RNA: Bacterial small subunit ribosomal RNA, nucleotides 1 to 581
Organism: Geothermobacter ehrlichii
RNA sequence: CAACUGGAGAGUUUGAUCCUGGCUCAGAACGAACGCUGGCGGCAUGCCUAACACAUGCAAGUCGAACGCGAAAGCUUCCUUCGGGAAGCGAGUAGAGUGGCGCACGGGUGAGUAACACGUGGAUAACCUGCCCGGUGAUCUGGGAUAACAUCUCGAAAGGGGUGCUAAUACCGGAUAAGCUCACAGGGACUUCGGUCCUGGUGGGAAAAGAUGGCCUCUUCUUGAAAGCUAUUGUCACCGGAUGGGUCCGCGGCCCAUUAGCUAGUUGGUAGGGUAAUGGCCUACCAAGGCAACGAUGGGUAGCUGGUCUGAGAGGAUGAUCAGCCACACUGGAACUGAGACACGGUCCAGACUCCUACGGGAGGCAGCAGUGGGGAAUUUUGCGCAAUGGGCGAAAGCCUGACGCAGCAAUGCCGCGUGAGUGAAGAAGGCCUUCGGGUCGUAAAGCUCUGUCAGAGGGGAAGAAACUCCUGAUGGCUAAUACCUGUCAGGACUGACGGUACCCUCAAAGGAAGCACCGGCUAACUCCGUGCCAGCAGCCGCGGUAAUACGGAGGGUGCGAGCGUUGUUCGGAAUUAUUG
Numbered sequence: 001c002a003a004c005u006g007g008a009g010a011g012u013u014u015g016a017u018c019c020u021g022g023c024u025c026a027g028a029a030c031g032a033a034c035g036c037u038g039g040c041g042g043c044a045u046g047c048c049u050a051a052c053a054c055a056u057g058c059a060a061g062u063c064g065a066a067c068g069c070g071a072a073a074g075c076u077u078c079c080u081u082c083g084g085g086a087a088g089c090g091a092g093u094a095g096a097g098u099g100g101c102g103c104a105c106g107g108g109u110g111a112g113u114a115a116c117a118c119g120u121g122g123a124u125a126a127c128c129u130g131c132c133c134g135g136u137g138a139u140c141u142g143g144g145a146u147a148a149c150a151u152c153u154c155g156a157a158a159g160g161g162g163u164g165c166u167a168a169u170a171c172c173g174g175a176u177a178a179g180c181u182c183a184c185a186g187g188g189a190c191u192u193c194g195g196u197c198c199u200g201g202u203g204g205g206a207a208a209a210g211a212u213g214g215c216c217u218c219u220u221c222u223u224g225a226a227a228g229c230u231a232u233u234g235u236c237a238c239c240g241g242a243u244g245g246g247u248c249c250g251c252g253g254c255c256c257a258u259u260a261g262c263u264a265g266u267u268g269g270u271a272g273g274g275u276a277a278u279g280g281c282c283u284a285c286c287a288a289g290g291c292a293a294c295g296a297u298g299g300g301u302a303g304c305u306g307g308u309c310u311g312a313g314a315g316g317a318u319g320a321u322c323a324g325c326c327a328c329a330c331u332g333g334a335a336c337u338g339a340g341a342c343a344c345g346g347u348c349c350a351g352a353c354u355c356c357u358a359c360g361g362g363a364g365g366c367a368g369c370a371g372u373g374g375g376g377a378a379u380u381u382u383g384c385g386c387a388a389u390g391g392g393c394g395a396a397a398g399c400c401u402g403a404c405g406c407a408g409c410a411a412u413g414c415c416g417c418g419u420g421a422g423u424g425a426a427g428a429a430g431g432c433c434u435u436c437g438g439g440u441c442g443u444a445a446a447g448c449u450c451u452g453u454c455a456g457a458g459g460g461g462a463a464g465a466a467a468c469u470c471c472u473g474a475u476g477g478c479u480a481a482u483a484c485c486u487g488u489c490a491g492g493a494c495u496g497a498c499g500g501u502a503c504c505c506u507c508a509a510a511g512g513a514a515g516c517a518c519c520g521g522c523u524a525a526c527u528c529c530g531u532g533c534c535a536g537c538a539g540c541c542g543c544g545g546u547a548a549u550a551c552g553g554a555g556g557g558u559g560c561g562a563g564c565g566u567u568g569u570u571c572g573g574a575a576u577u578a579u580u581g
Stems, first nucleotide, its partner, number of pairs: 009025005027571004032567006039417006045410002047375001052373003056370003061101003066098002070093001074089006108328003118252007127245002132241007140174004149164006180205005186199001188197003210233006254300003261291003266288008303325004307318004330351005353364004381407001383406003389402005420450004430441004454512001456507005464498001470492007515560005526555005536543002